A member of the RNA family "Group II catalytic intron D1-D4-3", 173 nucleotides long. Pairs were carried over by alignment from the consensus structure. Rfam describes the family as follows. Group II introns are found in rRNA, tRNA and mRNA of organelles in fungi, plants and protists, and also in mRNA in bacteria. A reference for the family is Bonen and Vogel (2001), "The ins and outs of group II introns", Trends Genet.
RNA sequence: CCGUGGGCGACUGCGGGUCUGAAGGAAGCCGGAGGGCAAAGCGCUGGCCUGACGAACAGGAAGCGGAUACGAGGCGGCGCGCCGGGGUGAGAUGGCCAUAUUCAUCAAAGCCCGGUACUUGCACGGAACGGUGCGUCGUAGAUCCGCCAGGCAUAAGCGUGAAGGUGGGUGCG
Number, nucleotide and partner (000 for none) at each position: 001c016002c015003g014004u013005g012006g011007g000008c000009g000010a000011c006012u005013g004014c003015g002016g001017g000018u000019c000020u000021g000022a000023a000024g000025g000026a000027a000028g000029c000030c171031g170032g000033a000034g000035g000036g166037c165038a000039a000040a000041g160042c159043g158044c157045u156046g000047g152048c151049c150050u149051g148052a000053c000054g000055a000056a000057c000058a000059g000060g000061a000062a000063g147064c146065g145066g144067a143068u142069a000070c000071g000072a000073g000074g139075c138076g137077g000078c135079g134080c133081g132082c131083c130084g129085g113086g112087g111088u110089g000090a000091g106092a105093u104094g103095g000096c000097c000098a000099u000100a000101u000102u000103c094104a093105u092106c091107a000108a000109a000110g088111c087112c086113c085114g000115g000116u000117a000118c000119u000120u000121g000122c000123a000124c000125g000126g000127a000128a000129c084130g083131g082132u081133g080134c079135g078136u000137c076138g075139u074140a000141g000142a068143u067144c066145c065146g064147c063148c051149a050150g049151g048152c047153a000154u000155a000156a045157g044158c043159g042160u041161g000162a000163a000164g000165g037166u036167g000168g000169g000170u031171g030172c000173g000